A member of the RNA family "TPP riboswitch aptamer (THI element)" from Bacillus sp. 7884-1, 104 nucleotides long. About the family: Vitamin B(1) in its active form thiamin pyrophosphate (TPP) is an essential coenzyme that is synthesised by coupling of pyrimidine and thiazole moieties in bacteria. The previously detected thiamin-regulatory element, thi box was extended, resulting in a new, highly conserved RNA secondary structure, the THI element, which is widely distributed in eubacteria and also occurs in some archaea. Analysis of operon structures identified a large number of new candidate thiamin-regulated genes, mostly transporters, in various prokaryotic organisms. It scores 85 bits against the family's covariance model.
[Rfam]
RNA sequence: GAAGACCACUAGGGGAGCCAUUUUAUGGCUGAGACAAGAGUUAUCUUGGACCCUUUGAACCUGAUCUAGUUCAUACUAGCGUAGGAAAGUGGAGUCUGUGUUUG
Numbered sequence: 001g002a003a004g005a006c007c008a009c010u011a012g013g014g015g016a017g018c019c020a021u022u023u024u025a026u027g028g029c030u031g032a033g034a035c036a037a038g039a040g041u042u043a044u045c046u047u048g049g050a051c052c053c054u055u056u057g058a059a060c061c062u063g064a065u066c067u068a069g070u071u072c073a074u075a076c077u078a079g080c081g082u083a084g085g086a087a088a089g090u091g092g093a094g095u096c097u098g099u100g101u102u103u104g
Stems, first nucleotide, its partner, number of pairs: 006092005011054004017029005036047004060085004066079004